Notes:
Shown here is a 135-nucleotide RNA sequence from Eragrostis curvula, a member of the family "Small nucleolar RNA snoR74". Taxonomically the source falls in Eragrostis (Eukaryota, Streptophytina, Euphyllophyta, Petrosaviidae). A search with the family's covariance model found it, with a score of 50 bits. For this family Rfam cites "Experimental RNomics: identification of 140 candidates for small non-messenger RNAs in the plant Arabidopsis thaliana" (Marker et al., Curr Biol, 2002). Rfam classes the family as an H/ACA-box small nucleolar RNA. Its family is annotated with RNA processing and nucleolus in the Gene Ontology.
[Rfam]
RNA sequence: UAAAGAGUAAAGGCUCUGUUCUAUUCUUCCCAUGAGCAGUUCCCACGUUACUUUAGGGAUAUUAACACAUUGUUAAUAUUUGAUGAGCCAUUGUUAAUAUUCCAUGACAAAUGGUUCACAAACAAUGUGACAUUU
Numbered sequence: 001u002a003a004a005g006a007g008u009a010a011a012g013g014c015u016c017u018g019u020u021c022u023a024u025u026c027u028u029c030c031c032a033u034g035a036g037c038a039g040u041u042c043c044c045a046c047g048u049u050a051c052u053u054u055a056g057g058g059a060u061a062u063u064a065a066c067a068c069a070u071u072g073u074u075a076a077u078a079u080u081u082g083a084u085g086a087g088c089c090a091u092u093g094u095u096a097a098u099a100u101u102c103c104a105u106g107a108c109a110a111a112u113g114g115u116u117c118a119c120a121a122a123c124a125a126u127g128u129g130a131c132a133u134u135u
Stems, first nucleotide, its partner, number of pairs: 005053003012043002016039006066129009084118007
Dot-bracket structure: ....(((....((..((((((............))))))..)).......)))............(((((((((.........(((((((.....................)))))))..)))))))))......